[Rfam]
Shown here is a 76-nucleotide RNA from Pipistrellus kuhlii, a member of the family "mir-9229 microRNA precursor family". The family's consensus secondary structure was predicted with RNAalifold. It scores 74 bits against the family's covariance model. Its family is annotated with miRNA-mediated post-transcriptional gene silencing and RISC complex in the Gene Ontology. Taxonomically the source falls in Pipistrellus (Eukaryota, Metazoa, Craniata, Yangochiroptera).
RNA sequence: GAGAUACUCCUGUGGAGCAGGACUUUCUUCAGUGGGGCUUUGGUGCUCAUUGAGUCUUCCCCUUGCGUGUGUCACU
Numbered sequence: 001g002a003g004a005u006a007c008u009c010c011u012g013u014g015g016a017g018c019a020g021g022a023c024u025u026u027c028u029u030c031a032g033u034g035g036g037g038c039u040u041u042g043g044u045g046c047u048c049a050u051u052g053a054g055u056c057u058u059c060c061c062c063u064u065g066c067g068u069g070u071g072u073c074a075c076u
Stems, first nucleotide, its partner, number of pairs: 001075001003073005009067001011065002014062002017059001019057001021056003029053008037044002